[Rfam]
RNA: mir-160 microRNA precursor family
Organism: Hibiscus syriacus
RNA sequence: AUCUGCCUGGCUCCCUGGAUGCCAACUAUGGAUGUCGUCAACAAAGAUUGGCACCUUCCUGGUUGGCAUCAGAGGAGUCAAGCAGGU
Number, nucleotide and partner (000 for none) at each position: 001a087002u086003c085004u084005g083006c082007c000008u080009g079010g078011c077012u076013c075014c074015c000016u072017g000018g070019a069020u068021g067022c066023c065024a064025a000026c000027u061028a060029u000030g000031g000032a000033u000034g000035u000036c000037g000038u000039c000040a000041a000042c000043a000044a000045a000046g000047a000048u000049u000050g000051g000052c000053a000054c000055c000056u000057u000058c000059c000060u028061g027062g000063u000064u024065g023066g022067c021068a020069u019070c018071a000072g016073a000074g014075g013076a012077g011078u010079c009080a008081a000082g006083c005084a004085g003086g002087u001